[Rfam]
RNA sequence: AGAGUUGGCGCAGGUGGUUGCAGAUUCACCCUAGGGACUGAAUCUGAGGAAAGUCCGGGCUCUCGAAAGACCAAACUUGCUGGGUAACGCCCAGUGCGGGCGACCGUGAGGAUAGUGCCACAGAAACAUACCGCCGAUGGUGUAGAGACGCGCCAUGGAAAGUCUCUACAAACAGGUAAGGGUGCAAAGGUGCGGUAAGAGCGCACCAGCAGCAUCGAGAGGUGCUGGCUCGGUAAACCCCGGUUGUGAGCAAGGUCAAAGGAACUACGGUUGGUCUUUUACCAGUUCCGUCUAAUAGAGCCGCUAGAGGCGUCUGGUGACAGGCGUCCCAGAUAGAUAACUACCCUCUUGGCGAUUCGUCAGGAGAACAGAACCCGGCUUAUGUCUGACUCUCUCC
Numbered sequence: 001a002g003a004g005u006u007g008g009c010g011c012a013g014g015u016g017g018u019u020g021c022a023g024a025u026u027c028a029c030c031c032u033a034g035g036g037a038c039u040g041a042a043u044c045u046g047a048g049g050a051a052a053g054u055c056c057g058g059g060c061u062c063u064c065g066a067a068a069g070a071c072c073a074a075a076c077u078u079g080c081u082g083g084g085u086a087a088c089g090c091c092c093a094g095u096g097c098g099g100g101c102g103a104c105c106g107u108g109a110g111g112a113u114a115g116u117g118c119c120a121c122a123g124a125a126a127c128a129u130a131c132c133g134c135c136g137a138u139g140g141u142g143u144a145g146a147g148a149c150g151c152g153c154c155a156u157g158g159a160a161a162g163u164c165u166c167u168a169c170a171a172a173c174a175g176g177u178a179a180g181g182g183u184g185c186a187a188a189g190g191u192g193c194g195g196u197a198a199g200a201g202c203g204c205a206c207c208a209g210c211a212g213c214a215u216c217g218a219g220a221g222g223u224g225c226u227g228g229c230u231c232g233g234u235a236a237a238c239c240c241c242g243g244u245u246g247u248g249a250g251c252a253a254g255g256u257c258a259a260a261g262g263a264a265c266u267a268c269g270g271u272u273g274g275u276c277u278u279u280u281a282c283c284a285g286u287u288c289c290g291u292c293u294a295a296u297a298g299a300g301c302c303g304c305u306a307g308a309g310g311c312g313u314c315u316g317g318u319g320a321c322a323g324g325c326g327u328c329c330c331a332g333a334u335a336g337a338u339a340a341c342u343a344c345c346c347u348c349u350u351g352g353c354g355a356u357u358c359g360u361c362a363g364g365a366g367a368a369c370a371g372a373a374c375c376c377g378g379c380u381u382a383u384g385u386c387u388g389a390c391u392c393u394c395u396c397c
Base pairs, nucleotide, nucleotide: 001393002392003391004390005389006388007387008386010385011384012383013345014344015343016342017341018340019339021046022045023044024043025042026041027040028039051381052380053379055378056377057376058375059374060250061249062248069278070277074245075244076243078242079241080094081093082092083091084090095109096107097106098105099104110240111239115238116237117234118233119232131181132180133177134176135175138172189207190206191205192204193203194202209229210227211226212225213224214223215222216221254302255301256300257298261289262288263287264286265285266284269283270282271281273279309328310327311326312325313324314323315322316321
Rfam assigns this 397-nucleotide sequence from Coleofasciculus sp. LEGE 07092 to the family "Bacterial RNase P class A". The source organism's lineage runs through Bacteria, Bacillati, Coleofasciculales, Coleofasciculaceae and Coleofasciculus. By type it is a ribozyme. The match comes from Rfam's covariance-model search (243 bits).